[Rfam]
RNA sequence: GAGUCCGACGGGCCUAAUCCACGCAGCGGUUGCGUGGAGCCGGGGACCCACCCUCCCCCCGGGGCGAAUCGGCGAACCCCACGCCGUAGGGCUGCUUCCAAGCCCGAGCCCGUCAGCUAACCCGGCCGGCCGCAUGGAAGGACAA
Numbered sequence: 001g002a003g004u005c006c007g008a009c010g011g012g013c014c015u016a017a018u019c020c021a022c023g024c025a026g027c028g029g030u031u032g033c034g035u036g037g038a039g040c041c042g043g044g045g046a047c048c049c050a051c052c053c054u055c056c057c058c059c060c061g062g063g064g065c066g067a068a069u070c071g072g073c074g075a076a077c078c079c080c081a082c083g084c085c086g087u088a089g090g091g092c093u094g095c096u097u098c099c100a101a102g103c104c105c106g107a108g109c110c111c112g113u114c115a116g117c118u119a120a121c122c123c124g125g126c127c128g129g130c131c132g133c134a135u136g137g138a139a140g141g142a143c144a145a
Base pairs, nucleotide, nucleotide: 011131012130013129014128018038019037020036021035022034023033024032025031026030039126040125041124042123043122044121049061062111063110064109070086071085072084073083089105090104091103092102

Shown here is a 145-nucleotide sequence from Nonomuraea aridisoli, a member of the family "c-di-AMP riboswitch aptamer (ydaO/yuaA leader)".
The match comes from Rfam's covariance-model search (73 bits).
Rfam's curators write: This family represents a conserved RNA structure found upstream of the ydaO and yuaA genes in Bacillus subtilis and related genes in other bacteria.
The organism belongs to Nonomuraea, within Bacteria.